[Rfam]
Rfam assigns this 64-nucleotide sequence from Quang Binh virus to the family "Insect-Specific Flavivirus 3' UTR repeats Ra". The sequence is in the family's curated seed alignment. 3' UTR in insect specific flavivirus families present three to four repeats of conserved element Ra.
RNA sequence: GCCCGCGCAAGGAAAGACGUGGAGCAGUCCGCGAUCUUUGGGAGUUGACGACUCUCCGCCCCCA
Numbered sequence: 001g002c003c004c005g006c007g008c009a010a011g012g013a014a015a016g017a018c019g020u021g022g023a024g025c026a027g028u029c030c031g032c033g034a035u036c037u038u039u040g041g042g043a044g045u046u047g048a049c050g051a052c053u054c055u056c057c058g059c060c061c062c063c064a
Base pairs, nucleotide, nucleotide: 005059006058007057013039014038015037016036017035040056041055042054043053044052045051
It is annotated as a cis-regulatory element. The base pairs follow the family's consensus structure, which was predicted with LocARNA.